[Rfam]
RNA sequence: GACACUAUGGCCGAGCGGUUAAGGCGUGUGACUAGAAUUUAUUCCCGAAAUCACAUCUCUUCGGAGGCGUCGGUUCAAAUCCGACUGGUGUCG
Numbered sequence: 001g002a003c004a005c006u007a008u009g010g011c012c013g014a015g016c017g018g019u020u021a022a023g024g025c026g027u028g029u030g031a032c033u034a035g036a037a038u039u040u041a042u043u044c045c046c047g048a049a050a051u052c053a054c055a056u057c058u059c060u061u062c063g064g065a066g067g068c069g070u071c072g073g074u075u076c077a078a079a080u081c082c083g084a085c086u087g088g089u090g091u092c093g
Stems, first nucleotide, its partner, number of pairs: 001092007010025003027055005069085005
tRNA: a 93-nucleotide sequence from Cladophialophora psammophila.
The family's consensus secondary structure is taken from published work.
The match comes from Rfam's covariance-model search (49 bits).
By type it is a transfer RNA.
The organism belongs to Cladophialophora psammophila, within Eukaryota.